[Rfam]
RNA sequence: AAUGGAAUAGAAGCGCCUGGACUAAUUCCGAUCGGAUAGAGGGGAUUAGUUGACGAGGAGGAGGUUUAUCGAUCAAUCGGCGGAUGCCUCCCGGUUAAAGCAAACCGUCAUCUCUUCUUUAAAGCAUUAGGGUAACUUAAUGGACAAAGAGUAGGGAAUGCUAAUUU
Numbered sequence: 001a002a003u004g005g006a007a008u009a010g011a012a013g014c015g016c017c018u019g020g021a022c023u024a025a026u027u028c029c030g031a032u033c034g035g036a037u038a039g040a041g042g043g044g045a046u047u048a049g050u051u052g053a054c055g056a057g058g059a060g061g062a063g064g065u066u067u068a069u070c071g072a073u074c075a076a077u078c079g080g081c082g083g084a085u086g087c088c089u090c091c092c093g094g095u096u097a098a099a100g101c102a103a104a105c106c107g108u109c110a111u112c113u114c115u116u117c118u119u120u121a122a123a124g125c126a127u128u129a130g131g132g133u134a135a136c137u138u139a140a141u142g143g144a145c146a147a148a149g150a151g152u153a154g155g156g157a158a159u160g161c162u163a164a165u166u167u
Stems, first nucleotide, its partner, number of pairs: 020051008029042001060091005069080004092107005111157005117151001125142007
Description: This 167-nucleotide RNA sequence from Cytobacillus solani belongs to the Rfam family "glmS glucosamine-6-phosphate activated ribozyme aptamer". The organism belongs to Cytobacillus, within Bacteria. The family's consensus secondary structure is taken from published work. It is annotated as a riboswitch.